RNA sequence: UCCCUCACAGUUUCCCGACUCUCGUUUUCCGCAAGGAAUGUCUAUCGCAGACCCCCUUCCCAGACUGUGGGACACAAUAUGCCGCUCCCGAGCCUGUAUCAGGACCUCGUUGUAUGCCGCACUUGGACCUAUUGUGCCCCUCGCCGCCGGCCACUCGGCCACGGACGGUACAGCCUAGCCGGGGGAACGAGUUUCGGAACUUAACCCUAAGCAUGUAC
Numbered sequence: 001u002c003c004c005u006c007a008c009a010g011u012u013u014c015c016c017g018a019c020u021c022u023c024g025u026u027u028u029c030c031g032c033a034a035g036g037a038a039u040g041u042c043u044a045u046c047g048c049a050g051a052c053c054c055c056c057u058u059c060c061c062a063g064a065c066u067g068u069g070g071g072a073c074a075c076a077a078u079a080u081g082c083c084g085c086u087c088c089c090g091a092g093c094c095u096g097u098a099u100c101a102g103g104a105c106c107u108c109g110u111u112g113u114a115u116g117c118c119g120c121a122c123u124u125g126g127a128c129c130u131a132u133u134g135u136g137c138c139c140c141u142c143g144c145c146g147c148c149g150g151c152c153a154c155u156c157g158g159c160c161a162c163g164g165a166c167g168g169u170a171c172a173g174c175c176u177a178g179c180c181g182g183g184g185g186a187a188c189g190a191g192u193u194u195c196g197g198a199a200c201u202u203a204a205c206c207c208u209a210a211g212c213a214u215g216u217a218c
Stems, first nucleotide, its partner, number of pairs: 009201003015197004
RNA: Ascomycota telomerase RNA, nucleotides 196 to 413
Organism: Tolypocladium paradoxum